[Rfam]
RNA sequence: GAAAGCCCGUCCAGUAGAGCCUGACCAGCAACUGGAAGCGAGUCUUGCGUGGUGUCGGGUAACCGGCCCCACGAAGCGUAGAUAGCGAGUCCGAAAGCCAUGCUAUGGAGCGUCGAAAGACCCAAUUGUGGGAGCCUUUGUCUUUGUGCCAGCAAGGGCCACGCUGCUGCACUCUAGUGGUUUGGUGCAAGCAGUCCUGCCGGCGUCGGUUUGGAACA
Numbered sequence: 001g002a003a004a005g006c007c008c009g010u011c012c013a014g015u016a017g018a019g020c021c022u023g024a025c026c027a028g029c030a031a032c033u034g035g036a037a038g039c040g041a042g043u044c045u046u047g048c049g050u051g052g053u054g055u056c057g058g059g060u061a062a063c064c065g066g067c068c069c070c071a072c073g074a075a076g077c078g079u080a081g082a083u084a085g086c087g088a089g090u091c092c093g094a095a096a097g098c099c100a101u102g103c104u105a106u107g108g109a110g111c112g113u114c115g116a117a118a119g120a121c122c123c124a125a126u127u128g129u130g131g132g133a134g135c136c137u138u139u140g141u142c143u144u145u146g147u148g149c150c151a152g153c154a155a156g157g158g159c160c161a162c163g164c165u166g167c168u169g170c171a172c173u174c175u176a177g178u179g180g181u182u183u184g185g186u187g188c189a190a191g192c193a194g195u196c197c198u199g200c201c202g203g204c205g206u207c208g209g210u211u212u213g214g215a216a217c218a
Base pairs, nucleotide, nucleotide: 010036011035012034013033014032019029020028023182024181025180038086039085042083043082044081045080046078047077048073049072050071051070052069054067055066056065057064058063107212108207110206111205112204113203114202115201128200129199130198131197132196133195134159135158136157139154140153141152164194165193166192167191168190169188170187171186172185173184
Group II catalytic intron D1-D4-6: a 218-nucleotide RNA sequence from Aeoliella straminimaris. A search with the family's covariance model found it, with a score of 109 bits. The source organism's lineage runs through Bacteria, Pseudomonadati, Pirellulales, Lacipirellulaceae and Aeoliella.